[Rfam]
RNA: Small nucleolar RNA SNORD14
Organism: Hordeum vulgare
RNA sequence: UGUUGGUGAUGAUAGAAAACUUAGGCUUGUUUCUCAAAACGACUGCAGUUGCCGCCUAAAUUGAUUUCGUCCUUCCAGGCUUGAGGUCUAAUGCUGCUAAUUCCUUUCUUGGGUGUCUGAGGCA
Number, nucleotide and partner (000 for none) at each position: 001u124002g123003u122004u121005g000006g000007u000008g000009a000010u000011g000012a000013u000014a000015g000016a000017a000018a000019a000020c000021u000022u000023a000024g000025g000026c000027u000028u000029g000030u000031u000032u000033c000034u000035c000036a000037a000038a000039a000040c000041g000042a000043c000044u000045g000046c000047a000048g000049u000050u000051g000052c000053c000054g000055c000056c000057u000058a000059a000060a000061u000062u000063g088064a087065u086066u085067u084068c083069g000070u000071c000072c000073u000074u000075c000076c000077a000078g000079g000080c000081u000082u000083g068084a067085g066086g065087u064088c063089u000090a000091a000092u000093g000094c000095u000096g000097c000098u000099a000100a000101u000102u000103c000104c000105u000106u000107u000108c000109u000110u000111g000112g000113g000114u000115g000116u000117c000118u000119g000120a000121g004122g003123c002124a001